Shown here is an 85-nucleotide RNA sequence from Lactuca saligna, a member of the family "Small nucleolar RNA R44/J54/Z268 family". It scores 75 bits against the family's covariance model. Rfam 15.1 lists 1,168 matches to the family in 228 species. Its Rfam clan is "SNORD74 clan". It is annotated as a C/D-box small nucleolar RNA.

Nucleotides: 085
Base pairs, nucleotide, nucleotide: 003083004082005081006080
Number, partner (000 for none) and nucleotide at each position: 001000g002000u003083a004082g005081c006080a007000a008000a009000u010000g011000a012000u013000g014000a015000u016000a017000a018000a019000u020000c021000a022000g023000a024000c025000a026000g027000g028000g029000a030000c031000a032000u033000c034000u035000g036000c037000a038000c039000u040000c041000u042000u043000u044000u045000g046000g047000a048000g049000u050000a051000u052000g053000a054000u055000g056000a057000u058000u059000u060000g061000u062000c063000u064000g065000u066000g067000g068000g069000a070000a071000u072000c073000u074000c075000u076000c077000u078000g079000a080006u081005g082004u083003u084000u085000a